[Rfam]
RNA sequence: UGGCUGUAAUGGUCAUAAAGCAAGAAGGGCUCACGACCCUAAUUUGACUUUCCCAAGUAUCCGGUCAAACGGAACUACCAACAGUGCCCAGUCCGAACAUUAAGGUGGCUCCCCACUCGUGCAGGAAACUCACGAUCGCUGGUGGUGUCUUAAGCAAUGAAGAUAACUUCUCGAGGGAGGACUCACUCUGCAGAGAGAUCUUCACCUUGAUGUGGCGGCAUUGGAUUACAUUCGUUGAGUGGUUUGGGAGAGGAGAUUAGGUUGAGUUUCGACUUAUUUUU
Numbered sequence: 001u002g003g004c005u006g007u008a009a010u011g012g013u014c015a016u017a018a019a020g021c022a023a024g025a026a027g028g029g030c031u032c033a034c035g036a037c038c039c040u041a042a043u044u045u046g047a048c049u050u051u052c053c054c055a056a057g058u059a060u061c062c063g064g065u066c067a068a069a070c071g072g073a074a075c076u077a078c079c080a081a082c083a084g085u086g087c088c089c090a091g092u093c094c095g096a097a098c099a100u101u102a103a104g105g106u107g108g109c110u111c112c113c114c115a116c117u118c119g120u121g122c123a124g125g126a127a128a129c130u131c132a133c134g135a136u137c138g139c140u141g142g143u144g145g146u147g148u149c150u151u152a153a154g155c156a157a158u159g160a161a162g163a164u165a166a167c168u169u170c171u172c173g174a175g176g177g178a179g180g181a182c183u184c185a186c187u188c189u190g191c192a193g194a195g196a197g198a199u200c201u202u203c204a205c206c207u208u209g210a211u212g213u214g215g216c217g218g219c220a221u222u223g224g225a226u227u228a229c230a231u232u233c234g235u236u237g238a239g240u241g242g243u244u245u246g247g248g249a250g251a252g253g254a255g256a257u258u259a260g261g262u263u264g265a266g267u268u269u270c271g272a273c274u275u276a277u278u279u280u281u
Stems, first nucleotide, its partner, number of pairs: 001015004018279003022275003027269007036262003042257004048252010060073004076241003079237004084231003088224005093218003097213009107149001109147001111145002113142003117135005123130002150154001158204007168197005177188003